[Rfam]
RNA sequence: AGCACAAUCUUGAAGUAGAGUAGUCUAGUAAGGUCAGAUGAUCCUUCUACGCUGCUCUACUUCAAAUUUGAGCCC
Dot-bracket structure: .((.(((...(((((((((((((..(((.(.((((....)))).).)))..)))))))))))))...))).))..
Rfam assigns this 75-nucleotide RNA sequence from Haemonchus placei to the family "mir-5928 microRNA precursor family". Taxonomically the source falls in Haemonchus (Eukaryota, Opisthokonta, Eumetazoa, Rhabditida). The family's consensus secondary structure was predicted with RNAalifold. The family has 5 seed sequences and 1,672 matches in Rfam 15.1.